[Rfam]
Background: A member of the RNA family "SAM-I/IV (S-adenosyl methionine) riboswitch aptamer", 90 nucleotides long.
RNA sequence: GUUUUGCAUAAAGAGAGGGAAGCCUCAGCAACCUAGAUUGCCAACUAAGGUGCUUUUUGAUGUGGUUAUUACAACAAAAAAUGGCUUUUU
Dot-bracket structure: .....((((.....((((....))))(((..(((((...[.[..)).))).))).....)))).(((.....)))........].]....
The family's consensus secondary structure is taken from published work.
The literature on the family includes a 2008 paper in RNA by Weinberg et al., "The aptamer core of SAM-IV riboswitches mimics the ligand-binding site of SAM-I riboswitches".